[Rfam]
RNA sequence: UUACGGAGUAAAGGGGAGUAGCGUCAGGGAAACCUGAAACAAAGUCGUCAUUACAUGGAGUAUUCCAUCGGCUUUGUUGGCAUAAUGAUUAUGCUUAGCAAGACCUUUGCCAUAUUU
Numbered sequence: 001u002u003a004c005g006g007a008g009u010a011a012a013g014g015g016g017a018g019u020a021g022c023g024u025c026a027g028g029g030a031a032a033c034c035u036g037a038a039a040c041a042a043a044g045u046c047g048u049c050a051u052u053a054c055a056u057g058g059a060g061u062a063u064u065c066c067a068u069c070g071g072c073u074u075u076g077u078u079g080g081c082a083u084a085a086u087g088a089u090u091a092u093g094c095u096u097a098g099c100a101a102g103a104c105c106u107u108u109g110c111c112a113u114a115u116u117u
Stems, first nucleotide, its partner, number of pairs: 025036003038078010055068005079095007
Manganese Mn2+ riboswitch aptamer (yybP-ykoY): a 117-nucleotide RNA from Priestia megaterium. Rfam's curators put it in the seed alignment. About the family: This RNA was originally discovered in E. coli during a large scale screen and was named SraF. The family was later found to exist upstream of related families of protein genes in many bacteria, including the the yybP and ykoK genes in B. subtilis. The specific functions of these proteins are unknown, but this structured RNA element may be involved in their genetic regulation as a riboswitch.